Rfam assigns this 99-nucleotide RNA sequence from Kibdelosporangium phytohabitans to the family "Glycine riboswitch aptamer". This family represents the bacterial glycine riboswitch. Glycine riboswitches usually consist of two metabolite-binding aptamers domains with similar structures in tandem.
RNA sequence: CGAGCCGCGGCGGGAGAGUCUUCGCCAGCCGGAUCCGGUGAAGCACCGAAGGAGCAAGCCUCCCCGCAAUCUCUCAGGUACAGCUACCGCCACGGCCAG
Numbered sequence: 001c002g003a004g005c006c007g008c009g010g011c012g013g014g015a016g017a018g019u020c021u022u023c024g025c026c027a028g029c030c031g032g033a034u035c036c037g038g039u040g041a042a043g044c045a046c047c048g049a050a051g052g053a054g055c056a057a058g059c060c061u062c063c064c065c066g067c068a069a070u071c072u073c074u075c076a077g078g079u080a081c082a083g084c085u086a087c088c089g090c091c092a093c094g095g096c097c098a099g
Stems, first nucleotide, its partner, number of pairs: 006094002009091005020043007045079003048075002052073003058067002